[Rfam]
RNA: raiA-hairpin RNA
Organism: Streptomyces tsukubensis
RNA sequence: CACCGAGUCCGGGGCUCCGGGAUUCUGCCGGGAGCCUGGUGCAAGUGGGA
Number, nucleotide and partner (000 for none) at each position: 001c000002a000003c000004c000005g000006a000007g000008u000009c000010c000011g000012g000013g036014g035015c034016u033017c032018c031019g029020g028021g000022a000023u000024u000025c000026u000027g000028c020029c019030g000031g018032g017033a016034g015035c014036c013037u000038g000039g000040u000041g000042c000043a000044a000045g000046u000047g000048g000049g000050a000